[Rfam]
RNA sequence: AGAGUAAGCUGAAAGUACCCUCCGAUUGCUUAACCAGACCGCCCUAAUCUAGUGGCGGUUU
Numbered sequence: 001a002g003a004g005u006a007a008g009c010u011g012a013a014a015g016u017a018c019c020c021u022c023c024g025a026u027u028g029c030u031u032a033a034c035c036a037g038a039c040c041g042c043c044c045u046a047a048u049c050u051a052g053u054g055g056c057g058g059u060u061u
Stems, first nucleotide, its partner, number of pairs: 001010002036061008
This 61-nucleotide RNA from Tolypothrix bouteillei belongs to the Rfam family "Nitrogen stress-induced RNA 4". Rfam describes the family as follows. Former name SyR12, is a cyanobacterial non-coding RNA which plays role in the regulation of Glutamine synthetase (GS), a key enzyme in biological nitrogen assimilation. NsiR4 interacts with the 5'UTR of the mRNA of the GS inactivating factor IF7 (gifA mRNA) and reduces its expression.